[Rfam]
The record is a 78-nucleotide sequence from Astyanax mexicanus, which matches "Small nucleolar RNA SNORD79" in Rfam. For this family Rfam cites "Purified box C/D snoRNPs are able to reproduce site-specific 2'-O-methylation of target RNA in vitro" (Galardi et al., Mol Cell Biol, 2002). Taxonomically the source falls in Astyanax (Eukaryota, Opisthokonta, Gnathostomata, Otophysi). It is annotated as a C/D-box small nucleolar RNA.
Nucleotides: 078
Stems, first nucleotide, its partner, number of pairs: 001078007
Number, partner (000 for none) and nucleotide at each position: 001078a002077g003076c004075u005074g006073u007072u008000a009000a010000u011000g012000a013000u014000g015000u016000a017000a018000a019000a020000c021000a022000a023000a024000g025000u026000a027000c028000a029000a030000u031000g032000g033000g034000a035000a036000u037000c038000u039000c040000c041000c042000u043000g044000a045000a046000u047000u048000a049000g050000a051000u052000u053000g054000a055000g056000g057000a058000c059000a060000c061000c062000a063000u064000g065000g066000c067000a068000c069000u070000g071000a072007a073006a074005c075004a076003g077002u078001u